[Rfam]
RNA sequence: GAGAACUGAUAAUCUGACAGGUGGAAUGAUGAAGUAACGCUCUGAAACGCCUGCCCUGAGCCUCCGACAAGCAUUGUAUGAGGAAACUCAGAAUGUUUGAAGCUCGGUAAAGACGGCUGAAAGAUACCGUAAUAGUUGAUGAACAUAUAUCUUCUAUCGAAAACUAUCCAGAGGCGGGUAGCGUAUCCAACAGGUCGGGGGUCUAUAAA
Numbered sequence: 001g002a003g004a005a006c007u008g009a010u011a012a013u014c015u016g017a018c019a020g021g022u023g024g025a026a027u028g029a030u031g032a033a034g035u036a037a038c039g040c041u042c043u044g045a046a047a048c049g050c051c052u053g054c055c056c057u058g059a060g061c062c063u064c065c066g067a068c069a070a071g072c073a074u075u076g077u078a079u080g081a082g083g084a085a086a087c088u089c090a091g092a093a094u095g096u097u098u099g100a101a102g103c104u105c106g107g108u109a110a111a112g113a114c115g116g117c118u119g120a121a122a123g124a125u126a127c128c129g130u131a132a133u134a135g136u137u138g139a140u141g142a143a144c145a146u147a148u149a150u151c152u153u154c155u156a157u158c159g160a161a162a163a164c165u166a167u168c169c170a171g172a173g174g175c176g177g178g179u180a181g182c183g184u185a186u187c188c189a190a191c192a193g194g195u196c197g198g199g200g201g202u203c204u205a206u207a208a209a
Stems, first nucleotide, its partner, number of pairs: 018053006031043001033041002054201004064107004068099008077090001080087001114197005123187005128159002134155002164181006

Shown here is a 209-nucleotide RNA sequence from Lachnospiraceae bacterium OF09-33XD, a member of the family "Group II catalytic intron D1-D4-5". From the family's description: Group II introns are found in rRNA, tRNA and mRNA of organelles in fungi, plants and protists, and also in mRNA in bacteria. Gene Ontology term of the family: Group II intron splicing. A search with the family's covariance model found it, with a score of 165 bits. A reference for the family is Chu et al. (2001), "Control of branch-site choice by a group II intron", EMBO J.